A member of the RNA family "mir-6096 microRNA precursor family" from Manduca sexta, 85 nucleotides long. It is one of the family's seed sequences. Rfam links the family to the GO terms RISC complex and miRNA-mediated post-transcriptional gene silencing.

RNA sequence: AGGACAUCAUUGUCGGUGGCCUGACUCAUAAUAAUUGGAUCAUGUUGUCAAAUAUUAUGAGGUCGGUCAACGACAGUGGCGAUCA
Dot-bracket structure: .((.(.(((((((((.(((((.(((((((((((.((((.........)))).)))))))).)))))))).))))))))).).)).

The base pairs follow the family's consensus structure, which was predicted with RNAalifold. The organism belongs to Manduca, within Eukaryota.